RNA sequence: AAAAAUCAAUGAUUCCGAGCAUAUUAGUCUAAAUGUUUAACACAUGAUUCAUAUGCCGAUAGGGUGUAAUUGGAAACGAUUAGGCCUCCCAGUGUGGAAAGGAAAUUUAAACAAAUAGCA
Numbered sequence: 001a002a003a004a005a006u007c008a009a010u011g012a013u014u015c016c017g018a019g020c021a022u023a024u025u026a027g028u029c030u031a032a033a034u035g036u037u038u039a040a041c042a043c044a045u046g047a048u049u050c051a052u053a054u055g056c057c058g059a060u061a062g063g064g065u066g067u068a069a070u071u072g073g074a075a076a077c078g079a080u081u082a083g084g085c086c087u088c089c090c091a092g093u094g095u096g097g098a099a100a101g102g103a104a105a106u107u108u109a110a111a112c113a114a115a116u117a118g119c120a
Base pairs, nucleotide, nucleotide: 006111011106013104014103015102016101019056020055021054022053023052024051026049027048028047029046034042035041036040062087063086064085065084067082068081069080070079071078072077088097089096

The family of this 120-nucleotide sequence from Clostridium sp. 'deep sea' is "Molybdenum/Tungsten riboswitch aptamer (Moco RNA motif)". The organism belongs to Clostridium, within Bacteria. Gene Ontology terms of the family: regulation of gene expression, tungstate binding and molybdenum ion binding.